[Rfam]
RNA: L19-Flavobacteria ribosomal protein leader
RNA sequence: CAACCUCUGACGAGAUACGUGAAAGUUG
Numbered sequence: 001c002a003a004c005c006u007c008u009g010a011c012g013a014g015a016u017a018c019g020u021g022a023a024a025g026u027u028g
Stems, first nucleotide, its partner, number of pairs: 001028004008023001010020003